[Rfam]
RNA sequence: UACGGCGGACAGUCGCUGCCGUCCGUUUAAACGGACGGUAGAGGAAAGUCGAGACACGCACACCGGUGCAUUCUUUGACCGGUGUAGUACGGUGCCCGGCGCAAGCCGGGGCAGGGCGACCUGACGACGGCAAAAGAAACCCAACGGGUUUUGAGUAGUCAUAAAGUGCCACAGAAACUAUGUCACCGGGUAACCGGUGAGUGCAAGGGUAAACUCCGCCAGCGUGCAACCCAAAUAGGCGGCCUUUGAGCCGCGGGUAGGGGCGCCCCCGUCCGGGGGAGGCAGACCCAUGGUCUGCUUAGAUAGAUGACUGUCGAAACAGAAUCUCGCUUACGGCC
Number, nucleotide and partner (000 for none) at each position: 001u000002a000003c000004g338005g337006c336007g334008g315009a314010c313011a312012g311013u310014c309015g000016c041017u040018g039019c038020c037021g036022u035023c034024c033025g000026u000027u000028u000029a000030a000031a000032c000033g024034g023035a022036c021037g020038g019039u018040a017041g016042a000043g000044g000045a000046a332047a331048g330049u000050c329051g328052a327053g326054a325055c226056a225057c224058g223059c222060a085061c084062a083063c082064c081065g080066g079067u078068g000069c000070a000071u000072u000073c000074u000075u000076u000077g000078a067079c066080c065081g064082g063083u062084g061085u060086a000087g000088u000089a000090c000091g220092g219093u218094g217095c110096c109097c108098g107099g106100c105101g000102c000103a000104a000105g100106c099107c098108g097109g096110g095111g125112c123113a122114g121115g120116g000117c000118g000119a000120c115121c114122u113123g112124a000125c111126g216127a215128c000129g160130g159131c158132a000133a000134a000135a000136g000137a151138a150139a149140c148141c000142c147143a000144a000145c000146g000147g142148g140149u139150u138151u137152u000153g000154a000155g000156u000157a000158g131159u130160c129161a000162u000163a000164a000165a000166g214167u213168g210169c209170c208171a000172c000173a000174g000175a000176a000177a000178c000179u000180a000181u000182g000183u200184c199185a198186c197187c196188g195189g194190g000191u000192a000193a000194c189195c188196g187197g186198u185199g184200a183201g000202u000203g000204c000205a000206a000207g000208g170209g169210u168211a000212a000213a167214c166215u127216c126217c094218g093219c092220c091221a000222g059223c058224g057225u056226g055227c000228a000229a000230c262231c261232c260233a000234a000235a000236u000237a000238g000239g000240c000241g000242g000243c000244c000245u000246u000247u000248g000249a000250g000251c000252c000253g000254c000255g000256g000257g000258u000259a000260g232261g231262g230263g000264c000265g000266c279267c278268c277269c276270c275271g000272u000273c000274c000275g270276g269277g268278g267279g266280a300281g299282g298283c297284a296285g295286a294287c293288c000289c000290a000291u000292g000293g287294u286295c285296u284297g283298c282299u281300u280301a000302g000303a000304u000305a000306g000307a000308u000309g014310a013311c012312u011313g010314u009315c008316g000317a000318a000319a000320c000321a000322g000323a000324a000325u054326c053327u052328c051329g050330c048331u047332u046333a000334c007335g000336g006337c005338c004
RNA: Bacterial RNase P class B
Organism: Desulfotruncus arcticus